RNA sequence: AAUGCACACAAAAACCCAAAGAACGUUGUUCUUAGUAAUGAUGUUCUUGUCAUGUGUGCAGAUAUUAUCUGUAUCUUGUCGCCUUUCAAGAGCUGAGGUGCUCUUGAAAGUGAAACUUAAGGUUCUACAUUA
Dot-bracket structure: ..(((((((...........((((((((((......)))))))))).......)))))))..........(.(((((.....(((((((((((......)))))))))))........))))).).......

Rfam assigns this 132-nucleotide RNA from Anseranas semipalmata to the family "Small nucleolar RNA SNORA68".
The family has 26 seed sequences and 1,079 matches in Rfam 15.1.
The family's RNA type in Rfam is H/ACA-box small nucleolar RNA.
From the family's description: U68 is a member of the H/ACA class of small nucleolar RNAs (snoRNAs) which act as guides in the the modification of uridines to pseudouridines.
The source organism's lineage runs through Eukaryota, Tetrapoda, Saurischia, Anseranatidae and Anseranas.